[Rfam]
RNA sequence: UCAAAGCUGAUUUUGAAACUGAAAAAAAAAAUCGCCAGGUACCAUGCAAAAGCAAUCUUCCCUUUAGAAUGACUGAUGGUAUGCUAAGGUUUUUCAUGGCAUAUUAUUAUUAAAGGUGAAUACAAAU
Numbered sequence: 001u002c003a004a005a006g007c008u009g010a011u012u013u014u015g016a017a018a019c020u021g022a023a024a025a026a027a028a029a030a031a032u033c034g035c036c037a038g039g040u041a042c043c044a045u046g047c048a049a050a051a052g053c054a055a056u057c058u059u060c061c062c063u064u065u066a067g068a069a070u071g072a073c074u075g076a077u078g079g080u081a082u083g084c085u086a087a088g089g090u091u092u093u094u095c096a097u098g099g100c101a102u103a104u105u106a107u108u109a110u111u112a113a114a115g116g117u118g119a120a121u122a123c124a125a126a127u
Base pairs, nucleotide, nucleotide: 008034009033010032011031012030013029058120059119060118061116062115063114064113065112066111067110074109075108076107077106078105079104080103081102082101083100084099085098086097